A member of the RNA family "Bacterial RNase P class B" from Weissella koreensis, 373 nucleotides long. By type it is a ribozyme. The source organism's lineage runs through Bacteria, Bacillati, Bacillota, Bacilli and Weissella.
RNA sequence: GUUAGUGGGUAAUUGCGUAUCAUUUUUAUGGUAUGAGGAAAGUCCAUGCUCGCACUGGCUGUGAUGCCAGUAGUGUUCGUGCUAGCUGAAAAAAUAAGGCUAGGCAGCCAUGUAAAUGGUUGACGGCCAACGAAUGACCUAAAGGAAACCACGGUUUAAUAGUUGUGAAAGUGCCACAGUGACGAACCUUUUUAGAAAUGGAAAGGCUGGAACGCGGUAAACCCCACGAGCGGGCAACCCAAACUUUGGUAGGGGCGCUUGAUCUAACAAAUUGAAGUGAUGAUCGGGGAGAUAUUUUUAAUAUCUGAGAUAGAUGAUUGCCACCAAACAAAGCCUGCCAAGCUCUGUUUGGAACAAAACAUGGCUUACAGCU
Numbered sequence: 001g002u003u004a005g006u007g008g009g010u011a012a013u014u015g016c017g018u019a020u021c022a023u024u025u026u027u028a029u030g031g032u033a034u035g036a037g038g039a040a041a042g043u044c045c046a047u048g049c050u051c052g053c054a055c056u057g058g059c060u061g062u063g064a065u066g067c068c069a070g071u072a073g074u075g076u077u078c079g080u081g082c083u084a085g086c087u088g089a090a091a092a093a094a095u096a097a098g099g100c101u102a103g104g105c106a107g108c109c110a111u112g113u114a115a116a117u118g119g120u121u122g123a124c125g126g127c128c129a130a131c132g133a134a135u136g137a138c139c140u141a142a143a144g145g146a147a148a149c150c151a152c153g154g155u156u157u158a159a160u161a162g163u164u165g166u167g168a169a170a171g172u173g174c175c176a177c178a179g180u181g182a183c184g185a186a187c188c189u190u191u192u193u194a195g196a197a198a199u200g201g202a203a204a205g206g207c208u209g210g211a212a213c214g215c216g217g218u219a220a221a222c223c224c225c226a227c228g229a230g231c232g233g234g235c236a237a238c239c240c241a242a243a244c245u246u247u248g249g250u251a252g253g254g255g256c257g258c259u260u261g262a263u264c265u266a267a268c269a270a271a272u273u274g275a276a277g278u279g280a281u282g283a284u285c286g287g288g289g290a291g292a293u294a295u296u297u298u299u300a301a302u303a304u305c306u307g308a309g310a311u312a313g314a315u316g317a318u319u320g321c322c323a324c325c326a327a328a329c330a331a332a333g334c335c336u337g338c339c340a341a342g343c344u345c346u347g348u349u350u351g352g353a354a355c356a357a358a359a360c361a362u363g364g365c366u367u368a369c370a371g372c373u
Stems, first nucleotide, its partner, number of pairs: 004373003007369001008322007016035006040367003044364005049234005054071006077229005082103006104124001105122006125224002128165004136156004144149001171222002173218003187206008238254003258288007290306005324352007332344003